[Rfam]
RNA: Burkholderia RNA 7 (anti-hemB)
RNA sequence: UCCCCGCUUUUCCUCCCUGAGCGGGAGCCUUUCUUGUGUGACAACAAAUAGGCUUUCAAGCCCGACUCCUUUGAGUCGGGUUUUUUUU
Numbered sequence: 001u002c003c004c005c006g007c008u009u010u011u012c013c014u015c016c017c018u019g020a021g022c023g024g025g026a027g028c029c030u031u032u033c034u035u036g037u038g039u040g041a042c043a044a045c046a047a048a049u050a051g052g053c054u055u056u057c058a059a060g061c062c063c064g065a066c067u068c069c070u071u072u073g074a075g076u077c078g079g080g081u082u083u084u085u086u087u088u
Stems, first nucleotide, its partner, number of pairs: 003025006027053004034047003060081008